[Rfam]
RNA sequence: CCAGAGGGCCGGGCGGCCGCGGCUCGCGCAGCGAUGUGCGGGGCGAGGAAAGUCCGGGCUCCACGAAACGACGGUGCCGGGUAACGCCCGGCGGGGGCGACCCCAGGGAAAGUGCCACAGAGAGCAGACCGCCACGGCUUUGGCCAGGCAAGGGUGAAAGGGUGCGGCAAGAGCGCACCGCGGCCCCGGCAACGGGGACGGCACGGCAAACCCCACCGGGAGCAAGACCGAAUAGGGACGGCAUAUGGGCCUCGUUUCGGCCCGUCGUCCGGGUUGGUUGCUGGAUCGCGGGCGCAAGUCCGCGACUAGAGGAAUGGUCGCCCAUCUGGCCGCGCCCUAUUGGGAGCGGCCGGUGGACAGAACCCGGCUUACAGGCCCUCUGGCAUU
Dot-bracket structure: ((((((((((((((((((.((.((((((........)))))).))....[[[.[[[[[((((....[[[[.((((((((((.....)))))(((((....)))).)((...(((((............(((((..(((....))).)))..)).......((((((.......))))))(((.(((((....))))).)).)..)))..)))))))))))))...((((......((((((.....(((((.]]]]..))))).)))))).....))))......((((((((....))))))))..........)))))))........................................]]]]]]]].).))))))))))....

Description:
Bacterial RNase P class A: a 387-nucleotide RNA sequence from Sphingomonas baiyangensis. Pairs were carried over by alignment from the consensus structure, which is taken from published work. The match comes from Rfam's covariance-model search (290 bits). Rfam links the family to the GO terms dimeric ribonuclease P complex, ribonuclease P activity and tRNA processing.